[Rfam]
Nucleotides: 086
Base pairs, nucleotide, nucleotide: 012037013036017032018031019030020029021028022027040080041079042078043077047076048075049072050071051070056066057065058064059063
Number, partner (000 for none) and nucleotide at each position: 001000u002000u003000u004000a005000u006000a007000a008000u009000u010000g011000g012037g013036c014000a015000a016000a017032c018031c019030u020029a021028u022027u023000g024000a025000a026000a027022g028021a029020u030019a031018g032017g033000g034000a035000c036013g037012c038000a039000a040080a041079a042078c043077u044000a045000u046000a047076g048075g049072g050071a051070c052000u053000a054000c055000a056066u057065c058064c059063u060000a061000c062000a063059a064058g065057g066056a067000u068000a069000u070051g071050u072049c073000a074000g075048c076047c077043a078042g079041u080040u081000g082000c083000a084000u085000u086000g

The family of this 86-nucleotide RNA from Paenibacillus sedimenti is "c-di-GMP-I riboswitch aptamer". From the family's description: GEMM was predicted in a large-scale screen for bacterial structured RNA regulatory elements. It scores 72 bits against the family's covariance model. The family's consensus secondary structure is taken from published work.